[Rfam]
RNA sequence: GGAAGUUUGACGGGGGCUGCUCCUAGUACGAGAGGACCGGAGUGGACGCACCUCUGGUGUACCGGUUGUGACGCCAGUCGCAUUGCCGGGUAGCUAAGUGCGGAAGAGAUAACCGCUGAAAGCAUCUAAGCGGGAAACUUGCCUGAAGAUGAGACUUCCCUGGAGGCUUGACCUCCCUGAAGAGUCGUUCGAGACCAGGACGUUGAUAGGUCGGGUGUGGAAGCGCUGUGAGGCGUGAAGCUAACCGAUACUAAUUGCUCGUGAG
Numbered sequence: 001g002g003a004a005g006u007u008u009g010a011c012g013g014g015g016g017c018u019g020c021u022c023c024u025a026g027u028a029c030g031a032g033a034g035g036a037c038c039g040g041a042g043u044g045g046a047c048g049c050a051c052c053u054c055u056g057g058u059g060u061a062c063c064g065g066u067u068g069u070g071a072c073g074c075c076a077g078u079c080g081c082a083u084u085g086c087c088g089g090g091u092a093g094c095u096a097a098g099u100g101c102g103g104a105a106g107a108g109a110u111a112a113c114c115g116c117u118g119a120a121a122g123c124a125u126c127u128a129a130g131c132g133g134g135a136a137a138c139u140u141g142c143c144u145g146a147a148g149a150u151g152a153g154a155c156u157u158c159c160c161u162g163g164a165g166g167c168u169u170g171a172c173c174u175c176c177c178u179g180a181a182g183a184g185u186c187g188u189u190c191g192a193g194a195c196c197a198g199g200a201c202g203u204u205g206a207u208a209g210g211u212c213g214g215g216u217g218u219g220g221a222a223g224c225g226c227u228g229u230g231a232g233g234c235g236u237g238a239a240g241c242u243a244a245c246c247g248a249u250a251c252u253a254a255u256u257g258c259u260c261g262u263g264a265g
Stems, first nucleotide, its partner, number of pairs: 001159008011145004017045007047102005055096003062089005067082006106140003113133005162177002179262001182260004186202005207253003210249005217241001223236005